Annotation:
The record is a 93-nucleotide RNA sequence from Gracilibacillus ureilyticus, which matches "Group II catalytic intron D1-D4-1" in Rfam. The source organism's lineage runs through Bacteria, Bacillati, Bacilli, Bacillaceae and Gracilibacillus.

[Rfam]
RNA sequence: AAACACUUAUAGUGAUAUAAGCCUGGACAGUGAGAAGUCAGCAGAAGUCAUAGUAGUGAAGAAAUCUAAUGAAAAUUAGAAGGAGCGAAGGGC
Numbered sequence: 001a002a003a004c005a006c007u008u009a010u011a012g013u014g015a016u017a018u019a020a021g022c023c024u025g026g027a028c029a030g031u032g033a034g035a036a037g038u039c040a041g042c043a044g045a046a047g048u049c050a051u052a053g054u055a056g057u058g059a060a061g062a063a064a065u066c067u068a069a070u071g072a073a074a075a076u077u078a079g080a081a082g083g084a085g086c087g088a089a090g091g092g093c
Stems, first nucleotide, its partner, number of pairs: 002024001006021006038045002047093003056086002065080003
The family has 237 seed sequences and 2,508 matches in Rfam 15.1.